[Rfam]
RNA sequence: AAAGUCAGACACGUGAUCGCGGCUGCCAUAUGCGAAAGCUGGCAGGUGAGGAAAGUCCGGGCUUCAUAGGGCAGGAUGCCGGAUAACGUCCGGUGGAGGUGACUCCAAGGAUAGUGCAACAGAAAUAAACCGCCCACCUUGUGUGGGUAAGGGUGGAAAGGCAGUGUAAGAGACUACCGUGCGGAUGGUAACACCCGUAGCCAUGUAAACCCCAUUCGAAGCAAGACCAAAGUGAGACGAAGGUGGCCCGCUAGUCUCGGGUAGGUCGCUUGAAAUGGCUGGUAACAGUCAUUCUAGAUAGAUGAUCGCGCAACGACAUAACCCGGCUUAUCGUCUGGCUUUUUCU
Numbered sequence: 001a002a003a004g005u006c007a008g009a010c011a012c013g014u015g016a017u018c019g020c021g022g023c024u025g026c027c028a029u030a031u032g033c034g035a036a037a038g039c040u041g042g043c044a045g046g047u048g049a050g051g052a053a054a055g056u057c058c059g060g061g062c063u064u065c066a067u068a069g070g071g072c073a074g075g076a077u078g079c080c081g082g083a084u085a086a087c088g089u090c091c092g093g094u095g096g097a098g099g100u101g102a103c104u105c106c107a108a109g110g111a112u113a114g115u116g117c118a119a120c121a122g123a124a125a126u127a128a129a130c131c132g133c134c135c136a137c138c139u140u141g142u143g144u145g146g147g148u149a150a151g152g153g154u155g156g157a158a159a160g161g162c163a164g165u166g167u168a169a170g171a172g173a174c175u176a177c178c179g180u181g182c183g184g185a186u187g188g189u190a191a192c193a194c195c196c197g198u199a200g201c202c203a204u205g206u207a208a209a210c211c212c213c214a215u216u217c218g219a220a221g222c223a224a225g226a227c228c229a230a231a232g233u234g235a236g237a238c239g240a241a242g243g244u245g246g247c248c249c250g251c252u253a254g255u256c257u258c259g260g261g262u263a264g265g266u267c268g269c270u271u272g273a274a275a276u277g278g279c280u281g282g283u284a285a286c287a288g289u290c291a292u293u294c295u296a297g298a299u300a301g302a303u304g305a306u307c308g309c310g311c312a313a314c315g316a317c318a319u320a321a322c323c324c325g326g327c328u329u330a331u332c333g334u335c336u337g338g339c340u341u342u343u344u345c346u
Stems, first nucleotide, its partner, number of pairs: 001342010011331001012310007020048002023045006053329003057326005062221004069249004074217005079093005094108001095106004109212002114210002116206003130152002132148006160178002163175003179201001180199005186193002225267004234258005242252003274293008
Annotation: Bacterial RNase P class A: a 346-nucleotide RNA sequence from Lachnospiraceae bacterium XBD2001. The organism belongs to Lachnospiraceae, within Bacteria. It is annotated as a ribozyme. A search with the family's covariance model found it, with a score of 303 bits.